[Rfam]
RNA sequence: GCGGGGGCUAGCCUUGGCCGGCGAACAGCGAGACCGCACUCGCCCGCCCCCGUCUCCACCUCUGCGG
Numbered sequence: 001g002c003g004g005g006g007g008c009u010a011g012c013c014u015u016g017g018c019c020g021g022c023g024a025a026c027a028g029c030g031a032g033a034c035c036g037c038a039c040u041c042g043c044c045c046g047c048c049c050c051c052g053u054c055u056c057c058a059c060c061u062c063u064g065c066g067g
Stems, first nucleotide, its partner, number of pairs: 001053008011022003028043005034067005
This 67-nucleotide sequence from Reyranella soli belongs to the Rfam family "int-alpA RNA". The source organism's lineage runs through Bacteria, Alphaproteobacteria, Hyphomicrobiales, Reyranellaceae and Reyranella. From the family's description: Acidobacteria (1 example), Planctomycetes (1 example), Proteobacteria.